[Rfam]
Shown here is a 174-nucleotide sequence, a member of the family "MIR807 microRNA precursor family". The family's consensus secondary structure was predicted with WAR. Rfam's curators put it in the seed alignment.
RNA sequence: AACCACAUUAUCAAUGAAUGGAUUCACCCGUGAUAUGACGUGGUUGUUCCACUUAGGAUAAGGAUGUGACAUUAUUAUCAGCCAUCGCACGAAAUUAAUAGGAUGCCACGUUCUUAUUCUAGGUGAAACAACCACGUCAUCUCACAGUUGAAUCCAUUCAUUGAUACCAUGGUU
Numbered sequence: 001a002a003c004c005a006c007a008u009u010a011u012c013a014a015u016g017a018a019u020g021g022a023u024u025c026a027c028c029c030g031u032g033a034u035a036u037g038a039c040g041u042g043g044u045u046g047u048u049c050c051a052c053u054u055a056g057g058a059u060a061a062g063g064a065u066g067u068g069a070c071a072u073u074a075u076u077a078u079c080a081g082c083c084a085u086c087g088c089a090c091g092a093a094a095u096u097a098a099u100a101g102g103a104u105g106c107c108a109c110g111u112u113c114u115u116a117u118u119c120u121a122g123g124u125g126a127a128a129c130a131a132c133c134a135c136g137u138c139a140u141c142u143c144a145c146a147g148u149u150g151a152a153u154c155c156a157u158u159c160a161u162u163g164a165u166a167c168c169a170u171g172g173u174u
Stems, first nucleotide, its partner, number of pairs: 001174005009166007017158003021154006028147001030145004035140005041134008051124002054121002057118002063112003070105003073100005084095002
Description: The literature on the family includes a 2006 paper in FEBS Lett by Luo et al., "Rice embryogenic calli express a unique set of microRNAs, suggesting regulatory roles of microRNAs in plant post-embryogenic development".